Description: The record is an 88-nucleotide RNA from Elaeis guineensis, which matches "Small nucleolar RNA snoR27" in Rfam. It scores 59 bits against the family's covariance model.
[Rfam]
RNA sequence: AUUGGAUCAAUGAUGCCUGUAGUCUGCAUUAUCUUUCUGUAACUUCGUUGAAGGAAUUGAAGAUGACACUGAUCUACUGAGAUCUGGU
Dot-bracket structure: (((((((..........................................................................)))))))
Numbered sequence: 001a002u003u004g005g006a007u008c009a010a011u012g013a014u015g016c017c018u019g020u021a022g023u024c025u026g027c028a029u030u031a032u033c034u035u036u037c038u039g040u041a042a043c044u045u046c047g048u049u050g051a052a053g054g055a056a057u058u059g060a061a062g063a064u065g066a067c068a069c070u071g072a073u074c075u076a077c078u079g080a081g082a083u084c085u086g087g088u
Stems, first nucleotide, its partner, number of pairs: 001088007
It is annotated as a C/D-box small nucleolar RNA. Rfam 15.1 lists 649 matches to the family in 212 species. NCBI's taxonomy places the organism under Eukaryota, Embryophyta, Euphyllophyta, Arecaceae, Elaeis.